[Rfam]
RNA: Bacterial large subunit ribosomal RNA, nucleotides 2017 to 2603
RNA sequence: CCCGCGGCAAGACGGAAAGACCCCGUGAACCUUUACUAUAGCUUUGCACUGAAUUUUGAACCUGCUUGUGUAGGAUAGGUGGGAGGCUUUGAAGCGCAGACGCCAGUUUGCGUGGAGCCAACCUUGAAAUACCACCCUGGCAUGUUUGGAGUUCUAACCUAGGCCCGUUAUCCGGGCUGGAGACAGUGCAUGGUGGGUAGUUUGACUGGGGCGGUCUCCUCCCAAAGAGUAACGGAGGAGCGCGAAGGUACCCUCAGCGCGGUCGGAAAUCGCGCAAUGAGUGCAAAGGCAUAAGGGUGCUUGACUGCAAGACGGACAGGUCGAGCAGGUGCGAAAGCAGGUCUUAGUGAUCCGGUGGUUCUGUAUGGAAGGGCCAUCGCUCAACGGAUAAAAGGUACUCCGGGGAUAACAGGCUGAUUCCUCCCAAGAGUCCACAUCGACGGAGGAGUUUGGCACCUCGAUGUCGGCUCAUCGCAUCCUGGGGCUGUAGCAGGUCCCAAGGGUAUGGCUGUUCGCCAUUUAAAGCGGUACGCGAGCUGGGUUCAGAACGUCGUGAGACAGUUCGGUCCCUAUCUGCCGUGGGCGUU
Numbered sequence: 001c002c003c004g005c006g007g008c009a010a011g012a013c014g015g016a017a018a019g020a021c022c023c024c025g026u027g028a029a030c031c032u033u034u035a036c037u038a039u040a041g042c043u044u045u046g047c048a049c050u051g052a053a054u055u056u057u058g059a060a061c062c063u064g065c066u067u068g069u070g071u072a073g074g075a076u077a078g079g080u081g082g083g084a085g086g087c088u089u090u091g092a093a094g095c096g097c098a099g100a101c102g103c104c105a106g107u108u109u110g111c112g113u114g115g116a117g118c119c120a121a122c123c124u125u126g127a128a129a130u131a132c133c134a135c136c137c138u139g140g141c142a143u144g145u146u147u148g149g150a151g152u153u154c155u156a157a158c159c160u161a162g163g164c165c166c167g168u169u170a171u172c173c174g175g176g177c178u179g180g181a182g183a184c185a186g187u188g189c190a191u192g193g194u195g196g197g198u199a200g201u202u203u204g205a206c207u208g209g210g211g212c213g214g215u216c217u218c219c220u221c222c223c224a225a226a227g228a229g230u231a232a233c234g235g236a237g238g239a240g241c242g243c244g245a246a247g248g249u250a251c252c253c254u255c256a257g258c259g260c261g262g263u264c265g266g267a268a269a270u271c272g273c274g275c276a277a278u279g280a281g282u283g284c285a286a287a288g289g290c291a292u293a294a295g296g297g298u299g300c301u302u303g304a305c306u307g308c309a310a311g312a313c314g315g316a317c318a319g320g321u322c323g324a325g326c327a328g329g330u331g332c333g334a335a336a337g338c339a340g341g342u343c344u345u346a347g348u349g350a351u352c353c354g355g356u357g358g359u360u361c362u363g364u365a366u367g368g369a370a371g372g373g374c375c376a377u378c379g380c381u382c383a384a385c386g387g388a389u390a391a392a393a394g395g396u397a398c399u400c401c402g403g404g405g406a407u408a409a410c411a412g413g414c415u416g417a418u419u420c421c422u423c424c425c426a427a428g429a430g431u432c433c434a435c436a437u438c439g440a441c442g443g444a445g446g447a448g449u450u451u452g453g454c455a456c457c458u459c460g461a462u463g464u465c466g467g468c469u470c471a472u473c474g475c476a477u478c479c480u481g482g483g484g485c486u487g488u489a490g491c492a493g494g495u496c497c498c499a500a501g502g503g504u505a506u507g508g509c510u511g512u513u514c515g516c517c518a519u520u521u522a523a524a525g526c527g528g529u530a531c532g533c534g535a536g537c538u539g540g541g542u543u544c545a546g547a548a549c550g551u552c553g554u555g556a557g558a559c560a561g562u563u564c565g566g567u568c569c570c571u572a573u574c575u576g577c578c579g580u581g582g583g584c585g586u587u
Base pairs, nucleotide, nucleotide: 001583002582003581004580005579006578007577008576010575011574012573014570015569022404023403024402025401027400028399029396030395031394032393033392035201036200037199038198042193043192045190046189047188048187051154052153053152054151055150056149057148058147059146060145061144063142064141065140066139068137078136079135080134081133082132085119086118087117094113095112096111097110098109099108100107101106159180160179162178163177164176165175166174167173204216205215206214207213217239218238219237220236221235222234240385242342243341248300249299250298251297252296253295254280255279257275258274259273260272261271262270281290282289305328306327307326308325311322312321313320330339331338332337353379354378355377356376357375358374359373361372362371413454414453415452417451418448419447420446421445422444423443424442428438429437465540466538467537468536469535470532471529472528473527474526475525478503479502481498482497483496484495485494486493505519506518507517508516509515546564547563548562549561550559551558552557